[Rfam]
RNA sequence: UAGUAUCAUUAGGGGUGCAAUUCAAUUUGCUGAGAGAAAGUCUACUUUCAACCCUUGAACCUGUUGGUUAGCACCAGCGUAGGAAAGUGAGCAAUAUUGAUA
Dot-bracket structure: .....(((((((((..((((......))))......((((....))))...))))....((((.(((......)))...))))..)))))............

Source information
A member of the RNA family "TPP riboswitch aptamer (THI element)" from Staphylococcus epidermidis, 102 nucleotides long. Rfam describes the family as follows. Vitamin B(1) in its active form thiamin pyrophosphate (TPP) is an essential coenzyme that is synthesised by coupling of pyrimidine and thiazole moieties in bacteria. Rfam's curators put it in the seed alignment.